[Rfam]
RNA sequence: UAACCUAGAUCGAAAGGUUUAGCUGAACAUGCAGAAGUCAGCAGAAGCCAUAGUACCUGAGUAGGGGACGCUCGAAAAGGGAAGGGC
Numbered sequence: 001u002a003a004c005c006u007a008g009a010u011c012g013a014a015a016g017g018u019u020u021a022g023c024u025g026a027a028c029a030u031g032c033a034g035a036a037g038u039c040a041g042c043a044g045a046a047g048c049c050a051u052a053g054u055a056c057c058u059g060a061g062u063a064g065g066g067g068a069c070g071c072u073c074g075a076a077a078a079g080g081g082a083a084g085g086g087c
Base pairs, nucleotide, nucleotide: 001025002024005022006021007020008019009018010017011016038045039044047087048086049085056080057079058078060072061071

Annotation: Group II catalytic intron D1-D4-1: an 87-nucleotide RNA from Baia soyae. The organism belongs to Baia, within Bacteria. It scores 66 bits against the family's covariance model.